The family of this 385-nucleotide part of an RNA from Syntrophobacter fumaroxidans is "Bacterial large subunit ribosomal RNA". The organism belongs to Syntrophobacter fumaroxidans, within Bacteria.

RNA sequence: GAUAAAGCGGGUGAGAAUCCCGCUCGCCGUAAGCCUAAGGUUUCCUGGGUAAAGGUCGUCUGCCCAGGGUUAGUCGGUCCCUAAGCCGAGGCCGAAAGGCGUAGGUGAUGGGAAACAGGUUAAUAUUCCUGUACCACCGAGCCGGCGUUUGAGUGAUGGGGGGACGCAGAAGGGUAGGCCAUCCGGGUGACGGAAGUCCCGGUAUAAGCCCGUAGGCGGAGGUUCCAGGCAAAUCCGGAGCCUUUUUAACGCCGAGAGGUGAUGUGGAGGGAGCAAUCCCGCAAACUGGUUGAUCCCAAGCUGCCAAGAAAAGCCUCUAGCGAGUUGGCCAGGUGACCGUACCGCAAACCGACACAGGUAGGCGAGGAGAGAAUCCUCAGGCGCG
Numbered sequence: 001g002a003u004a005a006a007g008c009g010g011g012u013g014a015g016a017a018u019c020c021c022g023c024u025c026g027c028c029g030u031a032a033g034c035c036u037a038a039g040g041u042u043u044c045c046u047g048g049g050u051a052a053a054g055g056u057c058g059u060c061u062g063c064c065c066a067g068g069g070u071u072a073g074u075c076g077g078u079c080c081c082u083a084a085g086c087c088g089a090g091g092c093c094g095a096a097a098g099g100c101g102u103a104g105g106u107g108a109u110g111g112g113a114a115a116c117a118g119g120u121u122a123a124u125a126u127u128c129c130u131g132u133a134c135c136a137c138c139g140a141g142c143c144g145g146c147g148u149u150u151g152a153g154u155g156a157u158g159g160g161g162g163g164a165c166g167c168a169g170a171a172g173g174g175u176a177g178g179c180c181a182u183c184c185g186g187g188u189g190a191c192g193g194a195a196g197u198c199c200c201g202g203u204a205u206a207a208g209c210c211c212g213u214a215g216g217c218g219g220a221g222g223u224u225c226c227a228g229g230c231a232a233a234u235c236c237g238g239a240g241c242c243u244u245u246u247u248a249a250c251g252c253c254g255a256g257a258g259g260u261g262a263u264g265u266g267g268a269g270g271g272a273g274c275a276a277u278c279c280c281g282c283a284a285a286c287u288g289g290u291u292g293a294u295c296c297c298a299a300g301c302u303g304c305c306a307a308g309a310a311a312a313g314c315c316u317c318u319a320g321c322g323a324g325u326u327g328g329c330c331a332g333g334u335g336a337c338c339g340u341a342c343c344g345c346a347a348a349c350c351g352a353c354a355c356a357g358g359u360a361g362g363c364g365a366g367g368a369g370a371g372a373a374u375c376c377u378c379a380g381g382c383g384c385g
Stems, first nucleotide, its partner, number of pairs: 006024006025383004033363004039343002044068006053061002075339004080111002085106003089102001091100003115132005135335004141329005153321002158317004166304004172297003177291005183202005204265002208260003215253003220243007228236002269282001271280001273278001349358002365377004